[Rfam]
RNA: mir-5365 microRNA precursor family
RNA sequence: UCAGCUAGAUCAGCUGUUCCAUCUUAAUCAUAAAAUUCAAUUCAGGAUGAUUAAGAAGAAACAACUGAUUUACUGAG
Numbered sequence: 001u002c003a004g005c006u007a008g009a010u011c012a013g014c015u016g017u018u019c020c021a022u023c024u025u026a027a028u029c030a031u032a033a034a035a036u037u038c039a040a041u042u043c044a045g046g047a048u049g050a051u052u053a054a055g056a057a058g059a060a061a062c063a064a065c066u067g068a069u070u071u072a073c074u075g076a077g
Stems, first nucleotide, its partner, number of pairs: 001076004007071007015063004020058001022056009036047003